Rfam assigns this 162-nucleotide RNA sequence from Maudiozyma saulgeensis to the family "Small nucleolar RNA snR70". The match comes from Rfam's covariance-model search (131 bits).
RNA sequence: UAUUAUGAUGAUUAUUUAUCGACCGGGCGGACAUAUUUAGUAUCUCGGAGUAUGCAGUCUGGCAACUUGCAGUUCUUUUGUGUACAAAUUUUUAAAGGAACUGUAGCUAGACAUUAUUGUAUGCACUGGGAGAAUUGAUGAUUGGUCUCAAGAUAGCUGAUU
Numbered sequence: 001u002a003u004u005a006u007g008a009u010g011a012u013u014a015u016u017u018a019u020c021g022a023c024c025g026g027g028c029g030g031a032c033a034u035a036u037u038u039a040g041u042a043u044c045u046c047g048g049a050g051u052a053u054g055c056a057g058u059c060u061g062g063c064a065a066c067u068u069g070c071a072g073u074u075c076u077u078u079u080g081u082g083u084a085c086a087a088a089u090u091u092u093u094a095a096a097g098g099a100a101c102u103g104u105a106g107c108u109a110g111a112c113a114u115u116a117u118u119g120u121a122u123g124c125a126c127u128g129g130g131a132g133a134a135u136u137g138a139u140g141a142u143u144g145g146u147c148u149c150a151a152g153a154u155a156g157c158u159g160a161u162u
Stems, first nucleotide, its partner, number of pairs: 007157001009155002016151002021147005034140002037138005043131003047127002050124007057112006067106013

A reference for the family is Filipowicz et al. (1999), "Structure and biogenesis of small nucleolar RNAs acting as guides for ribosomal RNA modification", Acta Biochim Pol. It is annotated as a C/D-box small nucleolar RNA.